[Rfam]
RNA sequence: GGUUGGGGUUUUAUUAAAAUAAAUAAAAGCUUUCAAGAUUAGCUUCUUUGGGUCAAGGAGC
Numbered sequence: 001g002g003u004u005g006g007g008g009u010u011u012u013a014u015u016a017a018a019a020u021a022a023a024u025a026a027a028a029g030c031u032u033u034c035a036a037g038a039u040u041a042g043c044u045u046c047u048u049u050g051g052g053u054c055a056a057g058g059a060g061c
Stems, first nucleotide, its partner, number of pairs: 003036003006031002009028007042061007
A member of the RNA family "Na+ riboswitch aptamer (DUF1646)" from Lactobacillus acetotolerans, 61 nucleotides long. The organism belongs to Lactobacillus, within Bacteria. The literature on the family includes a 2022 paper in Nat Chem Biol by White et al., "Na(+) riboswitches regulate genes for diverse physiological processes in bacteria". The match comes from Rfam's covariance-model search (44 bits).